Notes
Rfam assigns this 97-nucleotide sequence from Trichonephila clavipes to the family "mir-210 microRNA precursor family". Gene Ontology terms of the family: RISC complex and miRNA-mediated post-transcriptional gene silencing.
[Rfam]
RNA sequence: CUUGCAUUUACAGUAGCUGCUGGACGCUGCACCAGACUAAAUUUAAAAAGUUCUUGUGCGUGUGACAGCGGCUAUCGUAAAGAUGCGUAAAGCGACC
Numbered sequence: 001c002u003u004g005c006a007u008u009u010a011c012a013g014u015a016g017c018u019g020c021u022g023g024a025c026g027c028u029g030c031a032c033c034a035g036a037c038u039a040a041a042u043u044u045a046a047a048a049a050g051u052u053c054u055u056g057u058g059c060g061u062g063u064g065a066c067a068g069c070g071g072c073u074a075u076c077g078u079a080a081a082g083a084u085g086c087g088u089a090a091a092g093c094g095a096c097c
Stems, first nucleotide, its partner, number of pairs: 007081005015073008025062002028060005035053002
The base pairs follow the family's consensus structure, which was predicted with WAR.